[Rfam]
RNA sequence: GCCAUGGGGAUGGCGAUCUCCUCACGAGGCUCCGGCCGAAGCAUCGCGUCCAAUCUGCUUCACUGCACGGACGCGCCAUG
Dot-bracket structure: ....((((((........)))))).....................((((((.................))))))......
Numbered sequence: 001g002c003c004a005u006g007g008g009g010a011u012g013g014c015g016a017u018c019u020c021c022u023c024a025c026g027a028g029g030c031u032c033c034g035g036c037c038g039a040a041g042c043a044u045c046g047c048g049u050c051c052a053a054u055c056u057g058c059u060u061c062a063c064u065g066c067a068c069g070g071a072c073g074c075g076c077c078a079u080g
Stems, first nucleotide, its partner, number of pairs: 005024006046074006

This 80-nucleotide RNA sequence from Methylobacterium nodulans belongs to the Rfam family "chrB-a RNA". Rfam 15.1 lists 347 matches to the family in 339 species. It is annotated as a cis-regulatory element. The sequence is in the family's curated seed alignment.